[Rfam]
RNA sequence: UGGAAAAAUAGCUCUUUUAGUAUUUCUCCAGUAGGUUUCCUCAAGGAGAAAACCCCC
Number, nucleotide and partner (000 for none) at each position: 001u000002g000003g000004a000005a000006a000007a000008a000009u000010a000011g000012c000013u000014c000015u000016u000017u000018u000019a000020g000021u000022a000023u000024u000025u000026c000027u000028c000029c000030a000031g000032u000033a000034g054035g053036u052037u051038u050039c000040c048041u047042c046043a000044a000045g000046g042047a041048g040049a000050a038051a037052a036053c035054c034055c000056c000057c000
RNA: U7 small nuclear RNA